[Rfam]
RNA sequence: CCCGAAAGAUGGUGAACUAUGCCUGGCCAGGAUGAAGCCAGAGGAAACUCUGGUGGAGGUCCGUAGCAAUUCUGACGUGCAAAUCGAUUGUCAGAGCUGGGUAUAGGGGCGAAAGACUAAUCGAACCAUCUAGUAGCUGGUU
Numbered sequence: 001c002c003c004g005a006a007a008g009a010u011g012g013u014g015a016a017c018u019a020u021g022c023c024u025g026g027c028c029a030g031g032a033u034g035a036a037g038c039c040a041g042a043g044g045a046a047a048c049u050c051u052g053g054u055g056g057a058g059g060u061c062c063g064u065a066g067c068a069a070u071u072c073u074g075a076c077g078u079g080c081a082a083a084u085c086g087a088u089u090g091u092c093a094g095a096g097c098u099g100g101g102u103a104u105a106g107g108g109g110c111g112a113a114a115g116a117c118u119a120a121u122c123g124a125a126c127c128a129u130c131u132a133g134u135a136g137c138u139g140g141u142u
Base pairs, nucleotide, nucleotide: 001140002139004137008130009129010128011127012126013125017106018105019104020103021102022101023100024099025098026097027096028094030062031061032060033059037054038053039052040051041050042049043048066091067090068089069088071087072086074085075084108118109117